[Rfam]
RNA sequence: CCCUAAACUCUUUGUAAGUCGCUUUGGAUAAAAGCGUCUACUGAAUGACUAAAU
Numbered sequence: 001c002c003c004u005a006a007a008c009u010c011u012u013u014g015u016a017a018g019u020c021g022c023u024u025u026g027g028a029u030a031a032a033a034g035c036g037u038c039u040a041c042u043g044a045a046u047g048a049c050u051a052a053a054u
Base pairs, nucleotide, nucleotide: 013043014041015040016039020036021035022034023033024032025031
RNA: UnaL2 LINE 3' element